[Rfam]
RNA sequence: AUCUUGACUAGGUUGGGGAGCUAGGCGUUCCCUGUUACCAGAAACCGUCUAGAUGCUGGGACCGAAGCCUGCAGGGCGCUGUUGGAACAUGGAUGUGGUGGCGUGCUACGCCUAUGAAGUCCUGUCCCACUUGAUUGGUGGAGCAUGGGGCCCUUUUGGAGGAAAGGGUUAACAUGCCUGAUCUCUCAAACCCCGCCAGGUCCGGAAGGAAGCAACGGUAGGGAGGACAUUCGAUGCUUGUGGGGGUGCAGGACAGAGAACGAGAAUGUCCUUCCCAUCCAUGGGAAUUCGGUCACCUGUGGGCGCGUCACUUG
Numbered sequence: 001a002u003c004u005u006g007a008c009u010a011g012g013u014u015g016g017g018g019a020g021c022u023a024g025g026c027g028u029u030c031c032c033u034g035u036u037a038c039c040a041g042a043a044a045c046c047g048u049c050u051a052g053a054u055g056c057u058g059g060g061a062c063c064g065a066a067g068c069c070u071g072c073a074g075g076g077c078g079c080u081g082u083u084g085g086a087a088c089a090u091g092g093a094u095g096u097g098g099u100g101g102c103g104u105g106c107u108a109c110g111c112c113u114a115u116g117a118a119g120u121c122c123u124g125u126c127c128c129a130c131u132u133g134a135u136u137g138g139u140g141g142a143g144c145a146u147g148g149g150g151c152c153c154u155u156u157u158g159g160a161g162g163a164a165a166g167g168g169u170u171a172a173c174a175u176g177c178c179u180g181a182u183c184u185c186u187c188a189a190a191c192c193c194c195g196c197c198a199g200g201u202c203c204g205g206a207a208g209g210a211a212g213c214a215a216c217g218g219u220a221g222g223g224a225g226g227a228c229a230u231u232c233g234a235u236g237c238u239u240g241u242g243g244g245g246g247u248g249c250a251g252g253a254c255a256g257a258g259a260a261c262g263a264g265a266a267u268g269u270c271c272u273u274c275c276c277a278u279c280c281a282u283g284g285g286a287a288u289u290c291g292g293u294c295a296c297c298u299g300u301g302g303g304c305g306c307g308u309c310a311c312u313u314g
Base pairs, nucleotide, nucleotide: 005310006309007308008307011063012062013061014060015033016032017031018030019029020028021027038059039058040057041056043054067304068303069302070301071300072299073298074297075296078293079292080291081290083287088283089282090281091280092279093278097275098274100270101269102268103267104266106264107263112258113257119254120253121252122251123250124249125248126244127243128242129241130240133237134235135234136233137232138230139229140228141179143177144176145175146174147173149170150169151168152167153166154165155164156163157162182226183225184224185223186222187221193218194217195216201210202209203208
RNA: Archaeal signal recognition particle RNA